A member of the RNA family "msiK RNA" from Catenulispora acidiphila, 58 nucleotides long.
RNA sequence: CGGGCACCUUUCCAACUCGGAUCGUCCGGCACGUUCCUGCCGGUUGAAAGGGAGUGCA
Numbered sequence: 001c002g003g004g005c006a007c008c009u010u011u012c013c014a015a016c017u018c019g020g021a022u023c024g025u026c027c028g029g030c031a032c033g034u035u036c037c038u039g040c041c042g043g044u045u046g047a048a049a050g051g052g053a054g055u056g057c058a
Stems, first nucleotide, its partner, number of pairs: 009050003013046003026043006
Lineage of the source: Bacteria > Bacillati > Actinomycetota > Actinomycetes > Catenulispora acidiphila.